[Rfam]
RNA sequence: GUGAACCGGCAGCCGCUACCCGCGCGCGGCCGGUGAAU
Numbered sequence: 001g002u003g004a005a006c007c008g009g010c011a012g013c014c015g016c017u018a019c020c021c022g023c024g025c026g027c028g029g030c031c032g033g034u035g036a037a038u
Stems, first nucleotide, its partner, number of pairs: 005034006012027002014024003
RNA: DnaX ribosomal frameshifting element